[Rfam]
RNA sequence: CCGGGCUCCCGGGGAAGCCCGGCCGAACGGGCGCCGGCGCGCCCCGGCGCUCUCGGGUCCAUGUUGCUCGACGGAGGAUAUGGCGAUGAGAA
Numbered sequence: 001c002c003g004g005g006c007u008c009c010c011g012g013g014g015a016a017g018c019c020c021g022g023c024c025g026a027a028c029g030g031g032c033g034c035c036g037g038c039g040c041g042c043c044c045c046g047g048c049g050c051u052c053u054c055g056g057g058u059c060c061a062u063g064u065u066g067c068u069c070g071a072c073g074g075a076g077g078a079u080a081u082g083g084c085g086a087u088g089a090g091a092a
Stems, first nucleotide, its partner, number of pairs: 001022006008014002029051001031050007052090004059083007067076003
Dot-bracket structure: ((((((.((...))..))))))......(.(((((((......))))))))((((...(((((((.(((....))))))))))...))))..